[Rfam]
RNA sequence: UUUUUUCGAGGCGAUGGAGUUCGCCUGAUGCCUAUGAGCGGCUAAUGACUCCUACUUUUAA
Numbered sequence: 001u002u003u004u005u006u007c008g009a010g011g012c013g014a015u016g017g018a019g020u021u022c023g024c025c026u027g028a029u030g031c032c033u034a035u036g037a038g039c040g041g042c043u044a045a046u047g048a049c050u051c052c053u054a055c056u057u058u059u060a061a
Stems, first nucleotide, its partner, number of pairs: 010025004016052006030042003
A member of the RNA family "Fluoride riboswitch aptamer (crcB RNA motif)" from Pelotomaculum isophthalicicum, 61 nucleotides long.